[Rfam]
RNA sequence: UUCUUAUCGAGAGUGGUGGAGGGACUGACCCUGUGAAACCCGGCAACCUGCCUUAAAAGGUGUGGUGCUAAAUUCAGAGCUAAAAAAGCGAAGAUAAGAG
Numbered sequence: 001u002u003c004u005u006a007u008c009g010a011g012a013g014u015g016g017u018g019g020a021g022g023g024a025c026u027g028a029c030c031c032u033g034u035g036a037a038a039c040c041c042g043g044c045a046a047c048c049u050g051c052c053u054u055a056a057a058a059g060g061u062g063u064g065g066u067g068c069u070a071a072a073u074u075c076a077g078a079g080c081u082a083a084a085a086a087a088g089c090g091a092a093g094a095u096a097a098g099a100g
Stems, first nucleotide, its partner, number of pairs: 001100008013041001015040003021031003025077004042069004047065002049062004073092001079089003
This 100-nucleotide sequence from Ilyobacter polytropus belongs to the Rfam family "SAM riboswitch aptamer (S box leader)". Rfam describes the family as follows. The SAM riboswitch is found upstream of a number of genes which code for proteins involved in methionine or cysteine biosynthesis in Gram-positive bacteria. The SAM riboswitch acts at the level of transcription termination control. The predicted structure consists of a complex stem-loop region followed by a single stem loop terminator region. An alternative and mutually exclusive form involves bases in the 3' segment of helix 1 with those in the 5' region of helix 5 to form a structure termed the anti-terminator form.